Rfam assigns this 180-nucleotide sequence from Mycolicibacterium fallax to the family "c-di-AMP riboswitch aptamer (ydaO/yuaA leader)".
Rfam's curators write: This family represents a conserved RNA structure found upstream of the ydaO and yuaA genes in Bacillus subtilis and related genes in other bacteria.
RNA sequence: GUGGGGGUUCCACCAACCCGUGGAUGGAGACGGGGGACCCACCGGUCCACCGAUACGGACCUGGGGCCCAGCGGCCCCUUGGGGUGAAGCCGACGCGGUUCCUUCGGGAACAACGACGGCCGGGCAGCCUCUCUCGCCCGAACCCGACAGCUGACCUCGUGGGCGCGUAUCAGAGAGGAA
Numbered sequence: 001g002u003g004g005g006g007g008u009u010c011c012a013c014c015a016a017c018c019c020g021u022g023g024a025u026g027g028a029g030a031c032g033g034g035g036g037a038c039c040c041a042c043c044g045g046u047c048c049a050c051c052g053a054u055a056c057g058g059a060c061c062u063g064g065g066g067c068c069c070a071g072c073g074g075c076c077c078c079u080u081g082g083g084g085u086g087a088a089g090c091c092g093a094c095g096c097g098g099u100u101c102c103u104u105c106g107g108g109a110a111c112a113a114c115g116a117c118g119g120c121c122g123g124g125c126a127g128c129c130u131c132u133c134u135c136g137c138c139c140g141a142a143c144c145c146g147a148c149a150g151c152u153g154a155c156c157u158c159g160u161g162g163g164c165g166c167g168u169a170u171c172a173g174a175g176a177g178g179a180a
Base pairs, nucleotide, nucleotide: 011165013163014162018029030160031159032158033157034156035155040081041080082145083144084143090119091118092117122139123138124137125136